U4atac minor spliceosomal RNA: a 125-nucleotide RNA sequence from Salmo salar.
The family has 61 seed sequences and 1,648 matches in Rfam 15.1.
The base pairs follow the family's consensus structure, which is taken from published work.
Its Rfam clan is "U4 clan".
About the family: U4atac is an essential component of the minor U12-type spliceosome complex which is required for removal of the rarer class of eukaryotic introns (AT-AC, U12-type).
A reference for the family is Shukla et al. (2002), "Domains of human U4atac snRNA required for U12-dependent splicing in vivo", Nucleic Acids Res.
By type it is a spliceosomal small nuclear RNA.
[Rfam]
Nucleotides: 125
Base pairs, nucleotide, nucleotide: 006018007017008016009015020060023058024057026055027054028053029052030051031050032049038046039045082112083111084110085109086108087107088103089102091100093098
Number, partner (000 for none) and nucleotide at each position: 001000g002000c003000u004000u005000u006018c007017c008016u009015u010000g011000u012000c013000a014000u015009g016008g017007g018006g019000u020060g021000a022000g023058a024057g025000a026055g027054c028053u029052g030051c031050u032049c033000a034000a035000c036000a037000a038046a039045c040000a041000g042000c043000u044000a045039g046038u047000g048000a049032g050031a051030g052029u053028a054027g055026c056000c057024c058023u059000g060020c061000u062000a063000a064000c065000a066000c067000c068000a069000u070000a071000a072000c073000a074000a075000c076000a077000c078000a079000u080000a081000a082112g083111c084110a085109u086108c087107a088103c089102c090000u091100g092000a093098g094000c095000u096000u097000g098093u099000g100091c101000c102089g103088g104000c105000u106000a107087u108086g109085g110084u111083g112082c113000a114000a115000u116000u117000u118000u119000u120000g121000a122000a123000a124000c125000u